[Rfam]
RNA sequence: GCCUUUUGAAAGACAUGGGUAGUGAGAUGUUCGAGUCGGCGAUAUAUCUCACUAUUUUGUCUUUCACCAGGAC
Dot-bracket structure: .......((((((((.(((.(((((((((...............))))))))).)))))))))))........
The record is a 73-nucleotide RNA sequence from Caligus rogercresseyi, which matches "mir-71 microRNA precursor family" in Rfam. The source organism's lineage runs through Eukaryota, Opisthokonta, Metazoa, Pancrustacea and Caligus. Gene Ontology terms of the family: miRNA-mediated post-transcriptional gene silencing and RISC complex. For this family Rfam cites "MicroRNAs of Bombyx mori identified by Solexa sequencing" (Liu et al., BMC Genomics, 2010).